[Rfam]
Shown here is a 30-nucleotide RNA sequence from Pyrococcus furiosus, a member of the family "CRISPR RNA direct repeat element". The sequence is in the family's curated seed alignment. Rfam links the family to the GO term defense response. The organism belongs to Pyrococcus furiosus, within Archaea. The family's consensus secondary structure was predicted with WAR.
RNA sequence: GUUCCAAUAAGACUACAAAAGAAUUGAAAG
Number, nucleotide and partner (000 for none) at each position: 001g000002u000003u000004c000005c026006a025007a024008u023009a000010a000011g000012a000013c000014u000015a000016c000017a000018a000019a000020a000021g000022a000023a008024u007025u006026g005027a000028a000029a000030g000